This 84-nucleotide sequence from Croomia japonica belongs to the Rfam family "Plastid-rpl20 3UTR RNA".
Pairs were carried over by alignment from the consensus structure, which was predicted with LocARNA.
Taxonomically the source falls in Croomia (Eukaryota, Viridiplantae, Mesangiospermae, Pandanales).
Rfam classes the family as a cis-regulatory element.
The sequence is in the family's curated seed alignment.
Rfam describes the family as follows. Plastid rpl20 is a non-coding RNA (ncRNA) recognised in plastids. It was found in the three prime untranslated region (3UTR) of rpl20 gene, it presence in the 3UTR region sugest a role in transcript maduration.

RNA sequence: AAUUCCCCGGAGAACGAAACUCCGGGAAGAUAGAAUAAAAAAAAAAAUUAAGAUAAGUAGUAGGAAUGGACGAACAUGUUUCAA
Numbered sequence: 001a002a003u004u005c006c007c008c009g010g011a012g013a014a015c016g017a018a019a020c021u022c023c024g025g026g027a028a029g030a031u032a033g034a035a036u037a038a039a040a041a042a043a044a045a046a047a048u049u050a051a052g053a054u055a056a057g058u059a060g061u062a063g064g065a066a067u068g069g070a071c072g073a074a075c076a077u078g079u080u081u082c083a084a
Stems, first nucleotide, its partner, number of pairs: 003028002006026007068081004